[Rfam]
RNA sequence: GUGAAGUUAAUCACAUAGCAAACAUAUACCCCUUUGUUUGAAACCGUGAAAAUUUCUCCCAACCCCUUUGUUCGUAUAAAUAGUAAAGUCCUUGCGAUAUUUCGCAAGGACUUUUU
Numbered sequence: 001g002u003g004a005a006g007u008u009a010a011u012c013a014c015a016u017a018g019c020a021a022a023c024a025u026a027u028a029c030c031c032c033u034u035u036g037u038u039u040g041a042a043a044c045c046g047u048g049a050a051a052a053u054u055u056c057u058c059c060c061a062a063c064c065c066c067u068u069u070g071u072u073c074g075u076a077u078a079a080a081u082a083g084u085a086a087a088g089u090c091c092u093u094g095c096g097a098u099a100u101u102u103c104g105c106a107a108g109g110a111c112u113u114u115u116u
Stems, first nucleotide, its partner, number of pairs: 003056006011049004019040006072082001086113011
The family of this 116-nucleotide RNA sequence from Peribacillus deserti is "RNA Staph. aureus E (RoxS)".
The base pairs follow the family's consensus structure, which is taken from published work.
It scores 90 bits against the family's covariance model.
Its family is annotated with regulation of translational initiation in the Gene Ontology.
The literature on the family includes a 2015 paper in PLoS Genet by Durand et al., "A nitric oxide regulated small RNA controls expression of genes involved in redox homeostasis in Bacillus subtilis".
The organism belongs to Peribacillus, within Bacteria.